[Rfam]
Shown here is a 143-nucleotide sequence from Drosophila virilis, a member of the family "Small nucleolar RNA psi18S-1377".
Rfam describes the family as follows. psi18S-1377 is a member of the H/ACA class of snoRNA. This family is responsible for guiding the modification of uridines 1377 and 1279 to pseudouridine in Drosophila 18S rRNA.
Rfam links the family to the GO terms RNA processing and nucleolus.
Lineage of the source: Eukaryota > Panorpida > Ephydroidea > Drosophila > Drosophila.
Pairs were carried over by alignment from the consensus structure, which was predicted with RNAalifold.
Rfam classes the family as an H/ACA-box small nucleolar RNA.

RNA sequence: ACGUUCUUGUGUUAUUCGCUGAACUUUUAUUCUUGUUCAGCGAUUGUCAAACAGAACGCAUAUUGAAACCCAGAACAGUUUACUCCACGUUGCAGAGCCUAUCAAUUCCAAGGCUUCUGCAUAACUACCCACUGUUCACAUAC
Numbered sequence: 001a002c003g004u005u006c007u008u009g010u011g012u013u014a015u016u017c018g019c020u021g022a023a024c025u026u027u028u029a030u031u032c033u034u035g036u037u038c039a040g041c042g043a044u045u046g047u048c049a050a051a052c053a054g055a056a057c058g059c060a061u062a063u064u065g066a067a068a069c070c071c072a073g074a075a076c077a078g079u080u081u082a083c084u085c086c087a088c089g090u091u092g093c094a095g096a097g098c099c100u101a102u103c104a105a106u107u108c109c110a111a112g113g114c115u116u117c118u119g120c121a122u123a124a125c126u127a128c129c130c131a132c133u134g135u136u137c138a139c140a141u142a143c
Stems, first nucleotide, its partner, number of pairs: 002058006010049002016043007091121003096115004